Rfam assigns this 89-nucleotide sequence from Phaethon lepturus to the family "Small nucleolar SNORD12/SNORD106". Its family is annotated with RNA processing and nucleolus in the Gene Ontology. The family's RNA type in Rfam is C/D-box small nucleolar RNA. It scores 59 bits against the family's covariance model. Clan: SNORD12 clan.
RNA sequence: GCUGGUGUAGGUGAUGACAGUUUUUUCCCCGUCAGAGCGAUAGUGCUGAUUGCUCGCUGCUCAAGCCAGACCGUGUCUGACGCGCCAGC
Number, nucleotide and partner (000 for none) at each position: 001g089002c088003u087004g086005g085006u084007g083008u082009a000010g000011g000012u000013g000014a000015u000016g000017a000018c000019a000020g000021u000022u000023u000024u000025u000026u000027c000028c000029c000030c000031g000032u000033c000034a000035g000036a000037g000038c000039g000040a000041u000042a000043g000044u000045g000046c000047u000048g000049a000050u000051u000052g000053c000054u000055c000056g000057c000058u000059g000060c000061u000062c000063a000064a000065g000066c000067c000068a000069g000070a000071c000072c000073g000074u000075g000076u000077c000078u000079g000080a000081c000082g008083c007084g006085c005086c004087a003088g002089c001
Pairs were carried over by alignment from the consensus structure, which was predicted with RNAalifold. On this family, see Huttenhofer et al., EMBO J 2001: "RNomics: an experimental approach that identifies 201 candidates for novel, small, non-messenger RNAs in mouse". The family has 8 seed sequences and 2,264 matches in Rfam 15.1.